RNA sequence: GGAGCAUCAUUGAUGAGUUUACUAGGUAGUUAUCCUUACACUUUGAUUGCCUAUGAAGAAAAUCCAUGGGGAAAAUUGUCUCUGCGGUGCUU
Number, nucleotide and partner (000 for none) at each position: 001g000002g092003a091004g090005c089006a088007u087008c086009a000010u000011u000012g000013a000014u000015g000016a000017g000018u000019u000020u000021a000022c000023u000024a000025g000026g000027u000028a000029g000030u000031u000032a000033u000034c000035c000036u000037u000038a000039c000040a000041c000042u000043u000044u000045g000046a000047u000048u000049g000050c000051c000052u000053a000054u000055g000056a000057a000058g000059a000060a000061a000062a000063u000064c000065c000066a000067u000068g000069g000070g000071g000072a000073a000074a000075a000076u000077u000078g000079u000080c000081u000082c000083u000084g000085c000086g008087g007088u006089g005090c004091u003092u002